RNA sequence: CGCGGGACGACCCGCGCCGGUGUUUCAUCGGGGACGGCCCC
Numbered sequence: 001c002g003c004g005g006g007a008c009g010a011c012c013c014g015c016g017c018c019g020g021u022g023u024u025u026c027a028u029c030g031g032g033g034a035c036g037g038c039c040c041c
Base pairs, nucleotide, nucleotide: 001016002015003014004013005012006011030041031040032039033038
Record summary
Rfam assigns this 41-nucleotide RNA from Mesorhizobium sp. J18 to the family "Guanidine-II riboswitch aptamer (mini-ykkC)". The base pairs follow the family's consensus structure, which is taken from published work.